[Rfam]
RNA sequence: GGCGCCGCGAGGCCGUGUGGGGAGGAAGUCCGAGGCGAACCGCAGCACCGAACGAAAGUGAACCCCCGAGCAGGCCGGAUCGACCGGGUGAGCGUGCCUACAAACGCGACGCCCAAAAUCCAACCGAGGUCGAUACGGUAGUGGGGGCGGGAGCGGCGGGACAUCCAGUGUU
Number, nucleotide and partner (000 for none) at each position: 001g016002g000003c000004g013005c012006c011007g000008c000009g000010a000011g006012g005013c004014c000015g000016u001017g000018u000019g000020g000021g000022g000023a000024g000025g000026a000027a000028g172029u000030c170031c000032g000033a000034g000035g165036c000037g000038a000039a000040c159041c158042g157043c156044a000045g154046c000047a000048c150049c149050g148051a000052a000053c000054g000055a000056a000057a000058g000059u000060g000061a000062a000063c147064c146065c145066c144067c143068g142069a000070g000071c000072a000073g000074g139075c138076c137077g000078g000079a134080u133081c132082g131083a130084c129085c000086g114087g113088g112089u111090g000091a000092g107093c106094g105095u104096g000097c000098c000099u000100a000101c000102a000103a000104a095105c094106g093107c092108g000109a000110c000111g089112c088113c087114c086115a000116a000117a000118a000119u000120c000121c000122a000123a000124c000125c000126g000127a000128g000129g084130u083131c082132g081133a080134u079135a000136c000137g076138g075139u074140a000141g000142u068143g067144g066145g065146g064147g063148c050149g049150g048151g000152a000153g000154c045155g000156g043157c042158g041159g040160g000161a000162c000163a000164u000165c035166c000167a000168g000169u000170g030171u000172u028
Group II catalytic intron D1-D4-3: a 172-nucleotide RNA sequence from Ensifer meliloti.
On this family, see Chu et al., EMBO J 2001: "Control of branch-site choice by a group II intron".
NCBI's taxonomy places the organism under Bacteria, Pseudomonadota, Alphaproteobacteria, Hyphomicrobiales, Ensifer.
Rfam's curators put it in the seed alignment.
Rfam's curators write: Group II introns are found in rRNA, tRNA and mRNA of organelles in fungi, plants and protists, and also in mRNA in bacteria.